The record is a 190-nucleotide sequence from Theropithecus gelada, which matches "U2 spliceosomal RNA" in Rfam. Taxonomically the source falls in Theropithecus (Eukaryota, Opisthokonta, Amniota, Theria). From the family's description: U2 is a small nuclear RNA (snRNA) component of the spliceosome (involved in pre-mRNA splicing). By type it is a spliceosomal small nuclear RNA. The match comes from Rfam's covariance-model search (130 bits). Clan: U2 clan.

RNA sequence: AUCACCUCUCGGUCUUAUGGCUAAGAUCAAAUGUAGUAUGUUUUUACCAGCUUAACAUCUGAUAUAUCCUCUAUCUGAGGACAAUAAAUUAAAUGGGUUUUUGGAGCAGGGGGAUAGAAAAGGAGCUUUCUCCAUCCACUCCUAUACAUCAACCUGGUAUUGCAGGACCUCCAGGAAUGGUGCAUCACCA
Numbered sequence: 001a002u003c004a005c006c007u008c009u010c011g012g013u014c015u016u017a018u019g020g021c022u023a024a025g026a027u028c029a030a031a032u033g034u035a036g037u038a039u040g041u042u043u044u045u046a047c048c049a050g051c052u053u054a055a056c057a058u059c060u061g062a063u064a065u066a067u068c069c070u071c072u073a074u075c076u077g078a079g080g081a082c083a084a085u086a087a088a089u090u091a092a093a094u095g096g097g098u099u100u101u102u103g104g105a106g107c108a109g110g111g112g113g114a115u116a117g118a119a120a121a122g123g124a125g126c127u128u129u130c131u132c133c134a135u136c137c138a139c140u141c142c143u144a145u146a147c148a149u150c151a152a153c154c155u156g157g158u159a160u161u162g163c164a165g166g167a168c169c170u171c172c173a174g175g176a177a178u179g180g181u182g183c184a185u186c187a188c189c190a
Base pairs, nucleotide, nucleotide: 007026008025009024011022012021013020014019045064046063048061049060050059067081068080069079070078071077110143111142112141113140115138117136122133123132124131125130147182148181149180150179151178153175154174155173156172157171
Dot-bracket structure: ......(((.((((....)))).)))..................((.(((........))).))..(((((.....)))))............................((((.(.(....((((....))))..).).))))...(((((.(((((.............)))))..)))))........